[Rfam]
RNA sequence: UGAUAGCUAUGAAGCGUGAGGUUGCUAUUAUGGCGAAAGCUGUAAUAGGUUUUCCGUGGAGCGAAUGUCAGAUAAUAUGACGGCAA
Numbered sequence: 001u002g003a004u005a006g007c008u009a010u011g012a013a014g015c016g017u018g019a020g021g022u023u024g025c026u027a028u029u030a031u032g033g034c035g036a037a038a039g040c041u042g043u044a045a046u047a048g049g050u051u052u053u054c055c056g057u058g059g060a061g062c063g064a065a066u067g068u069c070a071g072a073u074a075a076u077a078u079g080a081c082g083g084c085a086a
Stems, first nucleotide, its partner, number of pairs: 014057003018054004025048010066085004071081001073079002